[Rfam]
RNA sequence: CGCCUUGCUCCGGGGUGCAGCCUUGCUGGAAACGGCAAGGGUGGCUGAGAUGGUCAGAACCAAACCCGCGAACUUGAAUCGGUUCAUACCGACGUAAGGAGAGCUGUCAGCAACCCG
Numbered sequence: 001c002g003c004c005u006u007g008c009u010c011c012g013g014g015g016u017g018c019a020g021c022c023u024u025g026c027u028g029g030a031a032a033c034g035g036c037a038a039g040g041g042u043g044g045c046u047g048a049g050a051u052g053g054u055c056a057g058a059a060c061c062a063a064a065c066c067c068g069c070g071a072a073c074u075u076g077a078a079u080c081g082g083u084u085c086a087u088a089c090c091g092a093c094g095u096a097a098g099g100a101g102a103g104c105u106g107u108c109a110g111c112a113a114c115c116c117g
Stems, first nucleotide, its partner, number of pairs: 007104004011068004016062001017045002020042005052061003073098004079092004
RNA: TPP riboswitch aptamer (THI element)
Organism: Haliea sp.